A member of the RNA family "Small nucleolar RNA SNORD34" from Helopsaltes ochotensis, 75 nucleotides long. The base pairs follow the family's consensus structure, which was predicted with PFOLD. On this family, see Galardi et al., Mol Cell Biol 2002: "Purified box C/D snoRNPs are able to reproduce site-specific 2'-O-methylation of target RNA in vitro". snoRNA U34 is found in intron 5 of the ribosomal protein L13a gene in humans. Clan: SNORD34 clan. A search with the family's covariance model found it, with a score of 57 bits. Rfam links the family to the GO terms RNA processing and nucleolus. The family's RNA type in Rfam is C/D-box small nucleolar RNA. Lineage of the source: Eukaryota > Euteleostomi > Sylvioidea > Locustellidae > Helopsaltes.
RNA sequence: UGGCGUCUGUGAUGUCACCUUUACCUACAUUGUUUGACUCUUUCUGAGAAAAAAUUCCCAAAUCCUGAGACGCCA
Numbered sequence: 001u002g003g004c005g006u007c008u009g010u011g012a013u014g015u016c017a018c019c020u021u022u023a024c025c026u027a028c029a030u031u032g033u034u035u036g037a038c039u040c041u042u043u044c045u046g047a048g049a050a051a052a053a054a055u056u057c058c059c060a061a062a063u064c065c066u067g068a069g070a071c072g073c074c075a
Stems, first nucleotide, its partner, number of pairs: 001075002004072004